RNA sequence: GGGCGGGGCCGUGACUGGCGCUGAGGUGGAGCACCACCGGGGAGCGGCCCACACCGAGUGACAGCCGCGCGCCUGGGCGAUCCGC
Numbered sequence: 001g002g003g004c005g006g007g008g009c010c011g012u013g014a015c016u017g018g019c020g021c022u023g024a025g026g027u028g029g030a031g032c033a034c035c036a037c038c039g040g041g042g043a044g045c046g047g048c049c050c051a052c053a054c055c056g057a058g059u060g061a062c063a064g065c066c067g068c069g070c071g072c073c074u075g076g077g078c079g080a081u082c083c084g085c
Stems, first nucleotide, its partner, number of pairs: 006050007015041002017073005026037004064078003
RNA: ZMP/ZTP riboswitch aptamer (pfl RNA motif)
Organism: Streptomyces mexicanus